The record is a 106-nucleotide RNA sequence from Panicum miliaceum, which matches "Small nucleolar RNA Z194" in Rfam. The base pairs follow the family's consensus structure, which was predicted with PFOLD. The organism belongs to Panicum sect. Panicum, within Eukaryota. Gene Ontology terms of the family: RNA processing and nucleolus. The literature on the family includes a 2003 paper in Nucleic Acids Res by Chen et al., "The high diversity of snoRNAs in plants: identification and comparative study of 120 snoRNA genes from Oryza sativa".

RNA sequence: GGCAGAUUCAUGAUGAAACAAUUACCCCAAGCGCUUUAUCCACUGAUUCAAGUGUGAUGGAAAGCUAUGUUGUUGCAGCUUUUGUGGUUUUCAAUCUGAAACAUCU
Numbered sequence: 001g002g003c004a005g006a007u008u009c010a011u012g013a014u015g016a017a018a019c020a021a022u023u024a025c026c027c028c029a030a031g032c033g034c035u036u037u038a039u040c041c042a043c044u045g046a047u048u049c050a051a052g053u054g055u056g057a058u059g060g061a062a063a064g065c066u067a068u069g070u071u072g073u074u075g076c077a078g079c080u081u082u083u084g085u086g087g088u089u090u091u092c093a094a095u096c097u098g099a100a101a102c103a104u105c106u
Stems, first nucleotide, its partner, number of pairs: 004106004030044002033041001060083007068075002